Source information:
A member of the RNA family "mir-223 microRNA precursor family" from Cynoglossus semilaevis, 107 nucleotides long. NCBI's taxonomy places the organism under Eukaryota, Teleostomi, Euteleostomi, Cynoglossinae, Cynoglossus. The family's consensus secondary structure was predicted with RNAalifold. On this family, see Lim et al., Science 2003: "Vertebrate microRNA genes".
[Rfam]
RNA sequence: GUUGGAGCAUCAGGCCUCCCACUUAGUGUAUUUGACAAGCUGAGUUAGACACUGUGCAUGAGUUGAGUGUCAGUUUGUCAAAUACCCUAAGUGAGGGGUCACUUUUC
Numbered sequence: 001g002u003u004g005g006a007g008c009a010u011c012a013g014g015c016c017u018c019c020c021a022c023u024u025a026g027u028g029u030a031u032u033u034g035a036c037a038a039g040c041u042g043a044g045u046u047a048g049a050c051a052c053u054g055u056g057c058a059u060g061a062g063u064u065g066a067g068u069g070u071c072a073g074u075u076u077g078u079c080a081a082a083u084a085c086c087c088u089a090a091g092u093g094a095g096g097g098g099u100c101a102c103u104u105u106u107c
Base pairs, nucleotide, nucleotide: 020093021092022091023090026087028085029084030083031082032081033080034079035078036077037076038075039074040073041072048071049070050069051068053066